[Rfam]
RNA: Bacillaceae-1 RNA
Organism: Gracilibacillus ureilyticus
RNA sequence: AAGAAAGGUUUACAGGCUAAUUUCGCCAAGUCCUGUGGCAACGCCUGCAUGACCUUCCUCCAGAAGG
Numbered sequence: 001a002a003g004a005a006a007g008g009u010u011u012a013c014a015g016g017c018u019a020a021u022u023u024c025g026c027c028a029a030g031u032c033c034u035g036u037g038g039c040a041a042c043g044c045c046u047g048c049a050u051g052a053c054c055u056u057c058c059u060c061c062a063g064a065a066g067g
Stems, first nucleotide, its partner, number of pairs: 011049001013047005025039004053067005